The family of this 75-nucleotide RNA from Haemonchus placei is "mir-5928 microRNA precursor family".
[Rfam]
RNA sequence: GGCCCAAAUUUGAAGUAGAGAUGAUUAGAAGGUUCAUCUGGCCCUACUAAACAGCUCUACUUCGAGUUUGUGCCC
Numbered sequence: 001g002g003c004c005c006a007a008a009u010u011u012g013a014a015g016u017a018g019a020g021a022u023g024a025u026u027a028g029a030a031g032g033u034u035c036a037u038c039u040g041g042c043c044c045u046a047c048u049a050a051a052c053a054g055c056u057c058u059a060c061u062u063c064g065a066g067u068u069u070g071u072g073c074c075c
Stems, first nucleotide, its partner, number of pairs: 001074003005070005011064010022053002025050004030045001032043001034041002